[Rfam]
RNA sequence: GGUAUCUGACGGGAACAAUCGUAUAGUACGAGAGGAACUACGAUUGGAUGCCACUGGUGUACCGGUCGUCCGAAAGGGCGCGUGCCGGGCAGCCACGCAUCACGGGGUAAGAGCUGAACGCAUCUAAGCUCGAAACCCACCUGAAAAAGAGAUACCACCGAGACCACUCGUAGAAGACGAGUUCAAUAGGCUCGGGAUGUACGCGCCGAGGCAACGAGGCGUUCAGUCCGCGAGUACUAACAGGUCGAG
Number, nucleotide and partner (000 for none) at each position: 001g156002g155003u154004a153005u152006c151007u150008g000009a000010c143011g142012g141013g140014a000015a000016c046017a045018a044019u043020c042021g041022u040023a039024u000025a000026g000027u000028a000029c000030g000031a000032g000033a000034g000035g000036a000037a000038c000039u023040a022041c021042g020043a019044u018045u017046g016047g101048a100049u099050g098051c097052c000053a000054c000055u095056g094057g093058u000059g000060u000061a000062c088063c087064g086065g085066u084067c080068g079069u078070c077071c076072g000073a000074a000075a000076g071077g070078g069079c068080g067081c000082g000083u000084g066085c065086c064087g063088g062089g000090c000091a000092g000093c057094c056095a055096c000097g051098c050099a049100u048101c047102a000103c000104g138105g137106g136107g000108u000109a000110a000111g131112a130113g129114c128115u127116g000117a000118a000119c000120g000121c000122a000123u000124c000125u000126a000127a115128g114129c113130u112131c111132g000133a000134a000135a000136c106137c105138c104139a000140c013141c012142u011143g010144a000145a000146a000147a000148a000149g000150a007151g006152a005153u004154a003155c002156c001157a000158c000159c000160g000161a000162g246163a245164c244165c243166a182167c181168u180169c179170g178171u000172a000173g000174a000175a000176g000177a000178c170179g169180a168181g167182u166183u000184c000185a000186a000187u239188a238189g237190g235191c234192u233193c232194g231195g229196g228197a227198u000199g000200u000201a000202c000203g222204c221205g220206c219207c218208g000209a000210g215211g000212c000213a000214a000215c210216g000217a000218g207219g206220c205221g204222u203223u000224c000225a000226g000227u197228c196229c195230g000231c194232g193233a192234g191235u190236a000237c189238u188239a187240a000241c000242a000243g165244g164245u163246c162247g000248a000249g000

Rfam assigns this 249-nucleotide part of an RNA from Halorussus gelatinilyticus to the family "Archaeal large subunit ribosomal RNA". The base pairs follow the family's consensus structure, which is taken from published work. The family has 91 seed sequences and 2,955 matches in Rfam 15.1. On this family, see Yusupov et al., Science 2001: "Crystal structure of the ribosome at 5.5 A resolution". NCBI's taxonomy places the organism under Archaea, Methanobacteriota, Halobacteria, Halobacteriales, Halorussus.